[Rfam]
RNA sequence: UCUGGUUAUCAAAAGUGCUGUUUGUGCAGGUAGAAGUCAUCCGCUACUGCAAAACCAGCACUUCAGGUAAACGGGU
Numbered sequence: 001u002c003u004g005g006u007u008a009u010c011a012a013a014a015g016u017g018c019u020g021u022u023u024g025u026g027c028a029g030g031u032a033g034a035a036g037u038c039a040u041c042c043g044c045u046a047c048u049g050c051a052a053a054a055c056c057a058g059c060a061c062u063u064c065a066g067g068u069a070a071a072c073g074g075g076u
Stems, first nucleotide, its partner, number of pairs: 005072003010067001013063008022054002025051003029048005